L2-Alphaproteobacteria ribosomal protein leader: a 65-nucleotide RNA from Ruegeria pomeroyi. Rfam classes the family as a cis-regulatory leader. For this family Rfam cites "Discovery of 20 novel ribosomal leader candidates in bacteria and archaea" (Eckert and Weinberg, BMC Microbiol, 2020).
[Rfam]
RNA sequence: GGGCACCUACGGGGGCCUCAAUACAUAGGCGGGGGAACCCGCCGUUGCUAAACGGAAGACAGAAA
Numbered sequence: 001g002g003g004c005a006c007c008u009a010c011g012g013g014g015g016c017c018u019c020a021a022u023a024c025a026u027a028g029g030c031g032g033g034g035g036a037a038c039c040c041g042c043c044g045u046u047g048c049u050a051a052a053c054g055g056a057a058g059a060c061a062g063a064a065a
Stems, first nucleotide, its partner, number of pairs: 001018004006014003028043006